Rfam assigns this 198-nucleotide RNA sequence from Nocardioides baekrokdamisoli to the family "c-di-AMP riboswitch aptamer (ydaO/yuaA leader)".
RNA sequence: GCGGACGCCGCGCUGAGUCCGGGCCGUUCGGGGGCCUGGAGCCGGGGAACCAACCGGUGUGCUGCGUGAAGUCAUGCGGCCGCCAUCUGGGGUGAAUCGUGCGUGAGGCGUGCCAGUUCGCUGGCGCGAGGAGCGCAGGUAGGGCACGUCGUUGCCCGAAUCCGUCAGCUCACCUGGUAGGCGUCACGACGAAGUUAG
Numbered sequence: 001g002c003g004g005a006c007g008c009c010g011c012g013c014u015g016a017g018u019c020c021g022g023g024c025c026g027u028u029c030g031g032g033g034g035c036c037u038g039g040a041g042c043c044g045g046g047g048a049a050c051c052a053a054c055c056g057g058u059g060u061g062c063u064g065c066g067u068g069a070a071g072u073c074a075u076g077c078g079g080c081c082g083c084c085a086u087c088u089g090g091g092g093u094g095a096a097u098c099g100u101g102c103g104u105g106a107g108g109c110g111u112g113c114c115a116g117u118u119c120g121c122u123g124g125c126g127c128g129a130g131g132a133g134c135g136c137a138g139g140u141a142g143g144g145c146a147c148g149u150c151g152u153u154g155c156c157c158g159a160a161u162c163c164g165u166c167a168g169c170u171c172a173c174c175u176g177g178u179a180g181g182c183g184u185c186a187c188g189a190c191g192a193a194g195u196u197a198g
Stems, first nucleotide, its partner, number of pairs: 011183004018040008041178006051089002090163003098139001100137005142157004
Dot-bracket structure: ..........((((...((((((((.......))))))))((((((....((...................................))(((.....(.(((((............................))))).)..((((........))))...))).........)))))).))))...............
Taxonomically the source falls in Nocardioides (Bacteria, Bacillati, Actinomycetes, Nocardioidaceae).